[Rfam]
RNA sequence: AUCUUAUUAAGAAGACGGGAGAGGUAUAGCUCUGUGAACGUCUACCAACCAGCAAACGCAAGGUGGUAAAGCUAUAAGCGAUGAGGA
Numbered sequence: 001a002u003c004u005u006a007u008u009a010a011g012a013a014g015a016c017g018g019g020a021g022a023g024g025u026a027u028a029g030c031u032c033u034g035u036g037a038a039c040g041u042c043u044a045c046c047a048a049c050c051a052g053c054a055a056a057c058g059c060a061a062g063g064u065g066g067u068a069a070a071g072c073u074a075u076a077a078g079c080g081a082u083g084a085g086g087a
Stems, first nucleotide, its partner, number of pairs: 002086007013043005021032003026075004044067004049063002052059002071079001
SAM riboswitch aptamer (S box leader): an 87-nucleotide RNA from Acholeplasma palmae.